Overview:
The family of this 56-nucleotide RNA from Streptosporangium amethystogenes is "L17-Actino-Proteobacteria ribosomal protein leader". Taxonomically the source falls in Streptosporangium (Bacteria, Actinomycetota, Actinomycetes, Streptosporangiaceae). For this family Rfam cites "Discovery of 20 novel ribosomal leader candidates in bacteria and archaea" (Eckert and Weinberg, BMC Microbiol, 2020). Rfam classes the family as a cis-regulatory leader.

[Rfam]
RNA sequence: CGGGGAUCGUGCGCGACUCCCCGGCCCGACCCCGGUACCUCGUACGGCCGGGGCGG
Numbered sequence: 001c002g003g004g005g006a007u008c009g010u011g012c013g014c015g016a017c018u019c020c021c022c023g024g025c026c027c028g029a030c031c032c033c034g035g036u037a038c039c040u041c042g043u044a045c046g047g048c049c050g051g052g053g054c055g056g
Stems, first nucleotide, its partner, number of pairs: 001023006007016002026056003030053007